[Rfam]
RNA: Bacillus sRNA ncr1015
Organism: Paenibacillus ferrarius
RNA sequence: AUAUAAGAUGCAUUCAAUAUAUCUAUUUACGAAAAUAAAAGUCGCAAACUGAUUAUAUCAUCGUGUUUGUUUAUAUGCAAUAUGAAAGAACCUGAUACAUUUAUCAGGUUCUUUUUUGG
Numbered sequence: 001a002u003a004u005a006a007g008a009u010g011c012a013u014u015c016a017a018u019a020u021a022u023c024u025a026u027u028u029a030c031g032a033a034a035a036u037a038a039a040a041g042u043c044g045c046a047a048a049c050u051g052a053u054u055a056u057a058u059c060a061u062c063g064u065g066u067u068u069g070u071u072u073a074u075a076u077g078c079a080a081u082a083u084g085a086a087a088g089a090a091c092c093u094g095a096u097a098c099a100u101u102u103a104u105c106a107g108g109u110u111c112u113u114u115u116u117u118g119g
Stems, first nucleotide, its partner, number of pairs: 034074001037071002040066001043063002084115012